[Rfam]
RNA sequence: CGCUGUGGAGGAUAGAGUAAGUCGCCGCGAGGCGGCUGGCCGGGAAAUCCGCU
Numbered sequence: 001c002g003c004u005g006u007g008g009a010g011g012a013u014a015g016a017g018u019a020a021g022u023c024g025c026c027g028c029g030a031g032g033c034g035g036c037u038g039g040c041c042g043g044g045a046a047a048u049c050c051g052c053u
Stems, first nucleotide, its partner, number of pairs: 020037007
Shown here is a 53-nucleotide RNA sequence, a member of the family "leuA-Halobacteria RNA". It is one of the family's seed sequences. The family's consensus secondary structure is taken from published work. The family's RNA type in Rfam is cis-regulatory element.